RNA: mir-27 microRNA precursor family
RNA sequence: UGGAGGUGAAGGGCUUAGCUCGCUCCGUGAACAGUUCAGUGAAAACUCGUGUUCACAGUGGCUAAGUUCCGCUCCUCAC
Numbered sequence: 001u002g003g004a005g006g007u008g009a010a011g012g013g014c015u016u017a018g019c020u021c022g023c024u025c026c027g028u029g030a031a032c033a034g035u036u037c038a039g040u041g042a043a044a045a046c047u048c049g050u051g052u053u054c055a056c057a058g059u060g061g062c063u064a065a066g067u068u069c070c071g072c073u074c075c076u077c078a079c
Stems, first nucleotide, its partner, number of pairs: 011069010027056007